[Rfam]
RNA sequence: ACCAGACCUCGUUAGGUAAGGCUCCUGUACGGAGAAACGCUACUGCCCAGAAACGUCCAAAGACGCCAAUGGGUUUGAACAGAAACCAUCGACUUAAGGUGGUUUAUAACGUAGCUAGAGUUCACUCUCUUAUGCCGUGCAGUGCUAAAGCUCAAUGAUUUGGGGUUCGUU
Numbered sequence: 001a002c003c004a005g006a007c008c009u010c011g012u013u014a015g016g017u018a019a020g021g022c023u024c025c026u027g028u029a030c031g032g033a034g035a036a037a038c039g040c041u042a043c044u045g046c047c048c049a050g051a052a053a054c055g056u057c058c059a060a061a062g063a064c065g066c067c068a069a070u071g072g073g074u075u076u077g078a079a080c081a082g083a084a085a086c087c088a089u090c091g092a093c094u095u096a097a098g099g100u101g102g103u104u105u106a107u108a109a110c111g112u113a114g115c116u117a118g119a120g121u122u123c124a125c126u127c128u129c130u131u132a133u134g135c136c137g138u139g140c141a142g143u144g145c146u147a148a149a150g151c152u153c154a155a156u157g158a159u160u161u162g163g164g165g166u167u168c169g170u171u
Base pairs, nucleotide, nucleotide: 005167006166007165008164009163010162011156012155013097015152016151017150020146021145022144025142026141027140028139029138030137031136032135039115040114041113042112043111045074046073047072048071049070054065055064056063057062083105084104085103088100089099090098117130118129119128
Shown here is a 171-nucleotide RNA sequence from Alcaligenaceae bacterium 429, a member of the family "M-box riboswitch aptamer (ykoK leader)". Lineage of the source: Bacteria > Pseudomonadati > Pseudomonadota > Burkholderiales > Alcaligenaceae. From the family's description: M-box riboswitch, also know as ykoK leader is described as a metaloregulatory RNA that sense divalent metals and function as a genetic control element of genes related to divalent metal transport in bacteria. It was first reported upstream of the B.subtilis ykoK gene and genes with related functions in other bacteria.